[Rfam]
RNA sequence: AAAUAGGGUAGAGGCGCGAUUGACAUCAGUAACUUUAUACAAUGCCGGCAAGCAGUAUAUAGUAAAAGGGGAUAUCGCCGAAAGAAUAUGAUUUUUGCCGAUUUUAUGUUCUUGGAACAUCUGUUAACAACAGUUGUUUUGUCAUUAUUUGUGUAAUGGAGAGCUAGCCAUAUA
Numbered sequence: 001a002a003a004u005a006g007g008g009u010a011g012a013g014g015c016g017c018g019a020u021u022g023a024c025a026u027c028a029g030u031a032a033c034u035u036u037a038u039a040c041a042a043u044g045c046c047g048g049c050a051a052g053c054a055g056u057a058u059a060u061a062g063u064a065a066a067a068g069g070g071g072a073u074a075u076c077g078c079c080g081a082a083a084g085a086a087u088a089u090g091a092u093u094u095u096u097g098c099c100g101a102u103u104u105u106a107u108g109u110u111c112u113u114g115g116a117a118c119a120u121c122u123g124u125u126a127a128c129a130a131c132a133g134u135u136g137u138u139u140u141g142u143c144a145u146u147a148u149u150u151g152u153g154u155a156a157u158g159g160a161g162a163g164c165u166a167g168c169c170a171u172a173u174a
Stems, first nucleotide, its partner, number of pairs: 006169002009166003016078005024070001032063003036059004082113010114140006121133004142159007
Description:
The family of this 174-nucleotide RNA sequence from Peptostreptococcus russellii is "Lysine riboswitch aptamer". NCBI's taxonomy places the organism under Bacteria, Bacillota, Peptostreptococcales, Peptostreptococcaceae, Peptostreptococcus.